[Rfam]
RNA sequence: UACUACCAAACCCUAUCUCCACCUCCACGUGGUGAUCGCUGGGAGUUCUUUCUUUAAGAAAAACUGCAUACGGAGGAGG
Number, nucleotide and partner (000 for none) at each position: 001u000002a000003c000004u000005a000006c000007c000008a000009a000010a000011c000012c000013c079014u078015a000016u076017c075018u074019c073020c072021a033022c032023c031024u000025c000026c000027a000028c000029g000030u000031g023032g022033u021034g000035a000036u000037c000038g000039c000040u000041g000042g000043g000044a000045g067046u066047u000048c000049u063050u062051u061052c000053u059054u000055u000056a000057a000058g000059a053060a000061a051062a050063a049064c000065u000066g046067c045068a000069u000070a000071c000072g020073g019074a018075g017076g016077a000078g014079g013
drz-agam-1 ribozyme: a 79-nucleotide RNA sequence from Hermetia illucens. The family's consensus secondary structure is taken from published work. For this family Rfam cites "Widespread occurrence of self-cleaving ribozymes" (Webb et al., Science, 2009). A search with the family's covariance model found it, with a score of 37 bits.